[Rfam]
RNA sequence: CAAUUUUUCCCGACGAUCGGCGCCAUAGGAGGCUUUCGCUUGACCUGUUGGCGGCUCAGUCGGGAUACUUGCGCCUUUUAUGCCCGCCCGACACCGGCGCAUGGUAGCAAAUGCCCGCCCGCCCGGUGGCCUGGAGCCGUGAUGGCAUCCUGAUUCCCAACCCGUUUUCAGGGGUAGACGCAUGGACCCG
Numbered sequence: 001c002a003a004u005u006u007u008u009c010c011c012g013a014c015g016a017u018c019g020g021c022g023c024c025a026u027a028g029g030a031g032g033c034u035u036u037c038g039c040u041u042g043a044c045c046u047g048u049u050g051g052c053g054g055c056u057c058a059g060u061c062g063g064g065a066u067a068c069u070u071g072c073g074c075c076u077u078u079u080a081u082g083c084c085c086g087c088c089c090g091a092c093a094c095c096g097g098c099g100c101a102u103g104g105u106a107g108c109a110a111a112u113g114c115c116c117g118c119c120c121g122c123c124c125g126g127u128g129g130c131c132u133g134g135a136g137c138c139g140u141g142a143u144g145g146c147a148u149c150c151u152g153a154u155u156c157c158c159a160a161c162c163c164g165u166u167u168u169c170a171g172g173g174g175u176a177g178a179c180g181c182a183u184g185g186a187c188c189c190g
Stems, first nucleotide, its partner, number of pairs: 009064006021053005092128006134175001137172002
Dot-bracket structure: ........((((((......(((((.......................))))).....))))))...........................((((((.........................)))))).....(..((................................))..)...............
aceE-II ncRNA motif: a 190-nucleotide RNA sequence from Thioalkalivibrio sp. ALJ16.
The sequence is in the family's curated seed alignment.
aceE ncRNA motif was reported as a strong cis regulatory motif candidate, with potential to riboswitch cis regulatory type, it have been recognised in the genus Thioalkalivibrio, the consensus sequence and structure model for the motif includes the Shine Dalgarno AUG start codon. The motif is located exclusively up-stream of the aceE gene, which codes for pyruvate dehydrogenase subunit E1.
The base pairs follow the family's consensus structure, which is taken from published work.
The literature on the family includes a 2024 paper in Nucleic Acids Res by Narunsky et al., "The discovery of novel noncoding RNAs in 50 bacterial genomes".